[Rfam]
RNA: L2-Alphaproteobacteria ribosomal protein leader
RNA sequence: GACCGGGUUCGCCCGGUCCGAACAUAGGCGGGGCGCCCAUCCGGGGCAGCUUCGCCGUCUGCAAACGGAAGACAGAAA
Numbered sequence: 001g002a003c004c005g006g007g008u009u010c011g012c013c014c015g016g017u018c019c020g021a022a023c024a025u026a027g028g029c030g031g032g033g034c035g036c037c038c039a040u041c042c043g044g045g046g047c048a049g050c051u052u053c054g055c056c057g058u059c060u061g062c063a064a065a066c067g068g069a070a071g072a073c074a075g076a077a078a
Stems, first nucleotide, its partner, number of pairs: 001018004006014002027056007